Description: The family of this 391-nucleotide sequence from Melopsittacus undulatus is "Vertebrate telomerase RNA". From the family's description: Telomerase is a ribonucleoprotein reverse transcriptase that synthesises telomeric DNA. Telomerase RNAs differ greatly in sequence and structure between vertebrates, ciliates and yeasts, but they share a 5' pseudoknot structure close to the template sequence. A reference for the family is Fragnet et al. (2005), "Comparative functional study of the viral telomerase RNA based on natural mutations", J Biol Chem. The organism belongs to Melopsittacus, within Eukaryota. The base pairs follow the family's consensus structure, which is taken from published work. Clan: Telomerase clan. The family's RNA type in Rfam is non-coding RNA gene.
RNA sequence: CGGGUUGGGAGACCAUGCUUCACUAACCCUAAUGGUUUCUGCCGGGCUCUCCCCAUACCUGUCCGCUGUUUUGUCCGCUGAGUCUUAGACGACGGGGGGAGCCGCUUGGGGGGGAAGGGAGUUUGCCAUCCAGAGACGUCAGCGACAGGUCUCCCCACUCUAGGGCCACCGGAGGGGGUGCCAUGGAGGCUCCGCCGCAUCAUGAGGCCGCCGUCGGCCGGUUCGCCCCACUGCCGACGGGAAGAGUUCGUCUCUGUUAGCCUCGGCGGGUGCGGCUGAGAGCUUGCGCCCCCACACGGGAUACCCUAGCACAACAAAACGGAGUGGUUUUCUAGGGCCGGCAGCCGUGCUCUCAAGUGAGAUGUGCUGAAGGCGACGCUCCGUGACAGUU
Numbered sequence: 001c002g003g004g005u006u007g008g009g010a011g012a013c014c015a016u017g018c019u020u021c022a023c024u025a026a027c028c029c030u031a032a033u034g035g036u037u038u039c040u041g042c043c044g045g046g047c048u049c050u051c052c053c054c055a056u057a058c059c060u061g062u063c064c065g066c067u068g069u070u071u072u073g074u075c076c077g078c079u080g081a082g083u084c085u086u087a088g089a090c091g092a093c094g095g096g097g098g099g100a101g102c103c104g105c106u107u108g109g110g111g112g113g114g115a116a117g118g119g120a121g122u123u124u125g126c127c128a129u130c131c132a133g134a135g136a137c138g139u140c141a142g143c144g145a146c147a148g149g150u151c152u153c154c155c156c157a158c159u160c161u162a163g164g165g166c167c168a169c170c171g172g173a174g175g176g177g178g179u180g181c182c183a184u185g186g187a188g189g190c191u192c193c194g195c196c197g198c199a200u201c202a203u204g205a206g207g208c209c210g211c212c213g214u215c216g217g218c219c220g221g222u223u224c225g226c227c228c229c230a231c232u233g234c235c236g237a238c239g240g241g242a243a244g245a246g247u248u249c250g251u252c253u254c255u256g257u258u259a260g261c262c263u264c265g266g267c268g269g270g271u272g273c274g275g276c277u278g279a280g281a282g283c284u285u286g287c288g289c290c291c292c293c294a295c296a297c298g299g300g301a302u303a304c305c306c307u308a309g310c311a312c313a314a315c316a317a318a319a320c321g322g323a324g325u326g327g328u329u330u331u332c333u334a335g336g337g338c339c340g341g342c343a344g345c346c347g348u349g350c351u352c353u354c355a356a357g358u359g360a361g362a363u364g365u366g367c368u369g370a371a372g373g374c375g376a377c378g379c380u381c382c383g384u385g386a387c388a389g390u391u
Base pairs, nucleotide, nucleotide: 005157007155008154009153010152011151012150013149014148046102047101048100049099050098060094061093062092063091066088067087068086077143078142079141080140081139083136084135085134160309161308162307163306164305165304174292176291177290178289179288180287181286184278185277186276189273190272193268194267195266196265197264209241211239215236216235217234218233220229221228243255244254245253246252322381323380324379325378327377328376329375331373332372333371345369347367348366349365351362352361353360354359